The record is a 71-nucleotide RNA from Nicotiana attenuata, which matches "Small nucleolar RNA snoR109" in Rfam. On this family, see Marker et al., Curr Biol 2002: "Experimental RNomics: identification of 140 candidates for small non-messenger RNAs in the plant Arabidopsis thaliana".
RNA sequence: CAACUUGAGAGGUUUACUGGCCGGUUGUUGUUUUGCUAUCGACAUAUCUGCUUACUGAAGUUCUUUCAUUU
Number, nucleotide and partner (000 for none) at each position: 001c000002a000003a000004c000005u000006u000007g065008a064009g063010a062011g061012g000013u059014u058015u000016a000017c000018u000019g052020g051021c050022c000023g048024g047025u046026u000027g043028u042029u041030g040031u000032u000033u000034u000035g000036c000037u000038a000039u000040c030041g029042a028043c027044a000045u000046a025047u024048c023049u000050g021051c020052u019053u000054a000055c000056u000057g000058a014059a013060g000061u011062u010063c009064u008065u007066u000067c000068a000069u000070u000071u000
Its family is annotated with nucleolus and RNA processing in the Gene Ontology. It scores 47 bits against the family's covariance model. It is annotated as an H/ACA-box small nucleolar RNA.